[Rfam]
RNA sequence: CCAGGACCACCUUUACGACGGAUCGUCCGGCACGUUCCUGCCGGUGAAGGAAAGGCAGAC
Numbered sequence: 001c002c003a004g005g006a007c008c009a010c011c012u013u014u015a016c017g018a019c020g021g022a023u024c025g026u027c028c029g030g031c032a033c034g035u036u037c038c039u040g041c042c043g044g045u046g047a048a049g050g051a052a053a054g055g056c057a058g059a060c
Stems, first nucleotide, its partner, number of pairs: 010050006027044006
Shown here is a 60-nucleotide sequence from Arsenicicoccus cauae, a member of the family "msiK RNA".
NCBI's taxonomy places the organism under Bacteria, Actinomycetota, Actinomycetes, Intrasporangiaceae, Arsenicicoccus.
Rfam classes the family as a cis-regulatory element.